The family of this 126-nucleotide RNA from Castor canadensis is "Small nucleolar RNA SNORA51". Rfam 15.1 lists 2,121 matches to the family in 210 species.
RNA sequence: GGCCUCCUGGUGCUUACCACAGGUUGUGUUUUUGCAUUGACUGUAUAGAAAGAGGAGGCAAAGUAAACCUACCCCAUAUACACCUCAGCCCUGUGUCUGGUCUGUAUUCUGAAUGCGGAGACAUGG
Dot-bracket structure: .(((((((...........(((...((((....))))...))).........)))))))............((.(((........(((.((.(...).)).)))........))).))........
Rfam's curators write: ACA51 is a member of the H/ACA class of snoRNA that guide the sites of modification of uridines to pseudouridines. NCBI's taxonomy places the organism under Eukaryota, Tetrapoda, Mammalia, Glires, Castor.